[Rfam]
The record is a 123-nucleotide RNA from Nannospalax galili, which matches "Small nucleolar RNA SNORA32" in Rfam. The organism belongs to Nannospalax, within Eukaryota. The family's consensus secondary structure was predicted with RNAfold. ACA32 is a member of the H/ACA class of snoRNA that guide the sites of modification of uridines to pseudouridines.
RNA sequence: GGUUCAUUUCUCAAUUGUUUAUUUUAAAGUCACAAAUUUACUGUGGACAUGACCAUAAAAAACCACUCCCACUAGGUUCUUCUGUGUGCUACUUUGCUAGCAAUCAACCUGCUGGGAACAUUU
Numbered sequence: 001g002g003u004u005c006a007u008u009u010c011u012c013a014a015u016u017g018u019u020u021a022u023u024u025u026a027a028a029g030u031c032a033c034a035a036a037u038u039u040a041c042u043g044u045g046g047a048c049a050u051g052a053c054c055a056u057a058a059a060a061a062a063c064c065a066c067u068c069c070c071a072c073u074a075g076g077u078u079c080u081u082c083u084g085u086g087u088g089c090u091a092c093u094u095u096g097c098u099a100g101c102a103a104u105c106a107a108c109c110u111g112c113u114g115g116g117a118a119c120a121u122u123u
Stems, first nucleotide, its partner, number of pairs: 004052004010046002028039002068116004075109004087102003